Shown here is a 98-nucleotide RNA from Limnoglobus roseus, a member of the family "c-di-GMP-I-GGC riboswitch aptamer". Its Rfam clan is "c-di-GMP_I riboswitch clan". A search with the family's covariance model found it, with a score of 60 bits. NCBI's taxonomy places the organism under Bacteria, Planctomycetota, Gemmatales, Gemmataceae, Limnoglobus.
[Rfam]
RNA sequence: CCGCGAAAUGGCAAACCCGUCGAAAGGCGGGGGCGCAAAGCUAUGGGCCUUCGGUUGGUGCCCCCCACCAAUAACCGAUGGUCGCCAAGCUACCGAAC
Numbered sequence: 001c002c003g004c005g006a007a008a009u010g011g012c013a014a015a016c017c018c019g020u021c022g023a024a025a026g027g028c029g030g031g032g033g034c035g036c037a038a039a040g041c042u043a044u045g046g047g048c049c050u051u052c053g054g055u056u057g058g059u060g061c062c063c064c065c066c067a068c069c070a071a072u073a074a075c076c077g078a079u080g081g082u083c084g085c086c087a088a089g090c091u092a093c094c095g096a097a098c
Stems, first nucleotide, its partner, number of pairs: 011036002016031006034084001039091004044087003047082003